[Rfam]
RNA sequence: GGGGGCGAUCCGGCUUCGACGGGAGCGGACAGCGUCCGGUGAGACGAGCCGAGUUCGCCGGAGACUCGUAAAACGCCGGCACCUAAACAUACACGCCAACGACAGAGAGAUGGCGCUGGCUGCCUAAAACCACUGGCAGCCCGUCGGUCCGGGCGGCCCACGGCCCGGUUUCCGGCGUCGGUUAGUGGGCUUACCUCCCGGGCUCCGGCCCGGGGUCCGGGGGGGACACCACAGCAGGGCUAGCCCCUCUGCGGCGCCCCGGUCCGCAGAGGCCGGUGAAGCUAAACCGGGUGCGACGCUCGUACAAUCUCCCGGAUGGCGCGCUCGCGGACGCGGGUUCGAUUCCCGCCGCCUCCACUG
Numbered sequence: 001g002g003g004g005g006c007g008a009u010c011c012g013g014c015u016u017c018g019a020c021g022g023g024a025g026c027g028g029a030c031a032g033c034g035u036c037c038g039g040u041g042a043g044a045c046g047a048g049c050c051g052a053g054u055u056c057g058c059c060g061g062a063g064a065c066u067c068g069u070a071a072a073a074c075g076c077c078g079g080c081a082c083c084u085a086a087a088c089a090u091a092c093a094c095g096c097c098a099a100c101g102a103c104a105g106a107g108a109g110a111u112g113g114c115g116c117u118g119g120c121u122g123c124c125u126a127a128a129a130c131c132a133c134u135g136g137c138a139g140c141c142c143g144u145c146g147g148u149c150c151g152g153g154c155g156g157c158c159c160a161c162g163g164c165c166c167g168g169u170u171u172c173c174g175g176c177g178u179c180g181g182u183u184a185g186u187g188g189g190c191u192u193a194c195c196u197c198c199c200g201g202g203c204u205c206c207g208g209c210c211c212g213g214g215g216u217c218c219g220g221g222g223g224g225g226a227c228a229c230c231a232c233a234g235c236a237g238g239g240c241u242a243g244c245c246c247c248u249c250u251g252c253g254g255c256g257c258c259c260c261g262g263u264c265c266g267c268a269g270a271g272g273c274c275g276g277u278g279a280a281g282c283u284a285a286a287c288c289g290g291g292u293g294c295g296a297c298g299c300u301c302g303u304a305c306a307a308u309c310u311c312c313c314g315g316a317u318g319g320c321g322c323g324c325u326c327g328c329g330g331a332c333g334c335g336g337g338u339u340c341g342a343u344u345c346c347c348g349c350c351g352c353c354u355c356c357a358c359u360g
Stems, first nucleotide, its partner, number of pairs: 001356007020329002023326005033318007041310001043308001045302005050068005057080005118141007142177006148168002151165001156190006194223005200217002208240004243277003251267003254294004260289003333349005
Dot-bracket structure: (((((((............((.(((((.....(((((((.(.(.((((((((((..[[[[[..))))).......]]]]].....................................(((((((..........)))))))((((((((.(....[[[[[[...).))...)))))).......]]]]]]...(((((.((......[[[[....)).))))).............]]]]..[[[.....[[[((((..(((..]]].......]]].........))).))))...))))).....).).)))))))...))))).))...(((((.......))))))))))))....
RNA: transfer-messenger RNA